[Rfam]
The family of this 68-nucleotide RNA sequence from Variovorax sp. CF079 is "ilvH RNA". NCBI's taxonomy places the organism under Bacteria, Pseudomonadota, Burkholderiales, Comamonadaceae, Variovorax. Rfam classes the family as a cis-regulatory element. The family's consensus secondary structure is taken from published work.
RNA sequence: GAUCAAUCUAUUGUCCGUCGAGCCUGCGCAUUACCGUGUGCGGGGGAGGGCGGCGAAAAGAGGAGUCC
Numbered sequence: 001g002a003u004c005a006a007u008c009u010a011u012u013g014u015c016c017g018u019c020g021a022g023c024c025u026g027c028g029c030a031u032u033a034c035c036g037u038g039u040g041c042g043g044g045g046g047a048g049g050g051c052g053g054c055g056a057a058a059a060g061a062g063g064a065g066u067c068c
Stems, first nucleotide, its partner, number of pairs: 011056003015053005023044009